[Rfam]
RNA sequence: UGAGGCCACUCUGGAAAGUGGGCUCAGGUGAGCCUCACCCAAGGUGAAAGCCGUGUACGCACGGUGAAACUCUCAGGUGUCAUGACAGAGGGGGAGUU
Numbered sequence: 001u002g003a004g005g006c007c008a009c010u011c012u013g014g015a016a017a018g019u020g021g022g023c024u025c026a027g028g029u030g031a032g033c034c035u036c037a038c039c040c041a042a043g044g045u046g047a048a049a050g051c052c053g054u055g056u057a058c059g060c061a062c063g064g065u066g067a068a069a070c071u072c073u074c075a076g077g078u079g080u081c082a083u084g085a086c087a088g089a090g091g092g093g094g095a096g097u098u
Stems, first nucleotide, its partner, number of pairs: 006093002009090005020035004037078003041073001044072001046070001050065006
Glycine riboswitch aptamer: a 98-nucleotide sequence from Prauserella isguenensis.
It scores 55 bits against the family's covariance model.